[Rfam]
RNA: Potassium channel RNA editing signal
RNA sequence: GUAGGUUACGGAGACAUAUACCCCACAACAGCGCUAGGGAAAGUUAUAGGAAGUGUAUGUUGUAUAUGCGGUGUCUUGGUAAUCGCGUUGCCCAUUCCUAUCAUUGUCAAUAAC
Numbered sequence: 001g002u003a004g005g006u007u008a009c010g011g012a013g014a015c016a017u018a019u020a021c022c023c024c025a026c027a028a029c030a031g032c033g034c035u036a037g038g039g040a041a042a043g044u045u046a047u048a049g050g051a052a053g054u055g056u057a058u059g060u061u062g063u064a065u066a067u068g069c070g071g072u073g074u075c076u077u078g079g080u081a082a083u084c085g086c087g088u089u090g091c092c093c094a095u096u097c098c099u100a101u102c103a104u105u106g107u108c109a110a111u112a113a114c
Stems, first nucleotide, its partner, number of pairs: 001114002004111001008107004013102002016099001020095001037077004049063001051061001